A member of the RNA family "mir-60 microRNA precursor family" from Caenorhabditis japonica, 69 nucleotides long.
The organism belongs to Caenorhabditis, within Eukaryota.
The match comes from Rfam's covariance-model search (70 bits).
Gene Ontology terms of the family: RISC complex and miRNA-mediated post-transcriptional gene silencing.

[Rfam]
RNA sequence: GUCUUGAGCUGGAAAAGUGCUAUAAAAUCGAGUAAUUUACGAUAUUAUGCACAUUUUCUAGUUCAAGAC
Numbered sequence: 001g002u003c004u005u006g007a008g009c010u011g012g013a014a015a016a017g018u019g020c021u022a023u024a025a026a027a028u029c030g031a032g033u034a035a036u037u038u039a040c041g042a043u044a045u046u047a048u049g050c051a052c053a054u055u056u057u058c059u060a061g062u063u064c065a066a067g068a069c
Stems, first nucleotide, its partner, number of pairs: 002068005008062009017052003021049005027043003